[Rfam]
About this RNA
The record is an 87-nucleotide sequence from Massilia sp. NR 4-1, which matches "Glycine riboswitch aptamer" in Rfam. About the family: This family represents the bacterial glycine riboswitch. The match comes from Rfam's covariance-model search (60 bits). The base pairs follow the family's consensus structure.
RNA sequence: GAGUCUUGAUCGGGAGAGGGCAAAUUCGCUUUGCCGCCGAAGGGGCACCACCCAAAAACUCUCAGGCAAAAGGACCGGUCAAGGGUC
Numbered sequence: 001g002a003g004u005c006u007u008g009a010u011c012g013g014g015a016g017a018g019g020g021c022a023a024a025u026u027c028g029c030u031u032u033g034c035c036g037c038c039g040a041a042g043g044g045g046c047a048c049c050a051c052c053c054a055a056a057a058a059c060u061c062u063c064a065g066g067c068a069a070a071a072g073g074a075c076c077g078g079u080c081a082a083g084g085g086u087c
Stems, first nucleotide, its partner, number of pairs: 006082008020034004036067003039063002043061003
Dot-bracket structure: .....((((((((......((((.......)))).(((((..(((.............))))).))).......)))))))).....
Lineage of the source: Bacteria > Pseudomonadati > Pseudomonadota > Betaproteobacteria > Massilia.